[Rfam]
Nucleotides: 093
Stems, first nucleotide, its partner, number of pairs: 007080004011043004016037001017030005049074004055068004
Number, partner (000 for none) and nucleotide at each position: 001000g002000c003000a004000u005000a006000a007080c008079u009078u010077u011043a012042g013041g014040a015000g016037u017030a018029a019028c020027u021026a022000g023000c024000a025000a026021u027020a028019g029018u030017u031000u032000g033000a034000g035000a036000a037016a038000u039000a040014u041013c042012c043011u044000u045000u046000g047000a048000a049074c050073c051072u052071g053000a054000u055068u056067u057066g058065g059000c060000u061000g062000a063000u064000a065058c066057c067056a068055a069000c070000g071052u072051a073050g074049g075000a076000a077010a078009a079008a080007g081000a082000a083000a084000a085000a086000g087000c088000a089000u090000u091000a092000u093000c